[Rfam]
RNA: Lysine riboswitch aptamer
RNA sequence: AAAGAAGUUAGAGGUCGCAACUUUAAUCAGUAGUACUUCAGAAGUUUGAUGAAACAUAUGUUGAAAGUACGAAAGGUAACGUUGCCGAAACAAAGCGUAUUCAUCGUACGUUUUGUUGGGCCAAUUGCCGAAAGGAAUUGGACUGUCACAACAUGUGAUGUGCUACCUAUAUA
Numbered sequence: 001a002a003a004g005a006a007g008u009u010a011g012a013g014g015u016c017g018c019a020a021c022u023u024u025a026a027u028c029a030g031u032a033g034u035a036c037u038u039c040a041g042a043a044g045u046u047u048g049a050u051g052a053a054a055c056a057u058a059u060g061u062u063g064a065a066a067g068u069a070c071g072a073a074a075g076g077u078a079a080c081g082u083u084g085c086c087g088a089a090a091c092a093a094a095g096c097g098u099a100u101u102c103a104u105c106g107u108a109c110g111u112u113u114u115g116u117u118g119g120g121c122c123a124a125u126u127g128c129c130g131a132a133a134g135g136a137a138u139u140g141g142a143c144u145g146u147c148a149c150a151a152c153a154u155g156u157g158a159u160g161u162g163c164u165a166c167c168u169a170u171a172u173a
Base pairs, nucleotide, nucleotide: 006168007167009165010164011163017085018084019083020082021081023079024078025077033070034069035068036067037066038065089117090116091115092114093113094112095111096110097109098108099107100106118144119143121141122140123139124138125137126136128134146158147157148156149155150154